[Rfam]
RNA sequence: AGCUUGUCAAUGAUGUUUCUCUUUAAAAAAUGUCUGAACAUAUGAGUUCAGAAGUGAUUUCAACCUGUAACUGAGAUAAGCU
Numbered sequence: 001a002g003c004u005u006g007u008c009a010a011u012g013a014u015g016u017u018u019c020u021c022u023u024u025a026a027a028a029a030a031u032g033u034c035u036g037a038a039c040a041u042a043u044g045a046g047u048u049c050a051g052a053a054g055u056g057a058u059u060u061c062a063a064c065c066u067g068u069a070a071c072u073g074a075g076a077u078a079a080g081c082u
Stems, first nucleotide, its partner, number of pairs: 002081007

The record is an 82-nucleotide RNA from Crocodylus porosus, which matches "Small nucleolar RNA SNORD72" in Rfam. On this family, see Huttenhofer et al., EMBO J 2001: "RNomics: an experimental approach that identifies 201 candidates for novel, small, non-messenger RNAs in mouse". It is annotated as a C/D-box small nucleolar RNA. The pairing is the family consensus, mapped onto this sequence. Rfam's curators write: snoRNA HBII-240 belongs to the CD family of snoRNAs.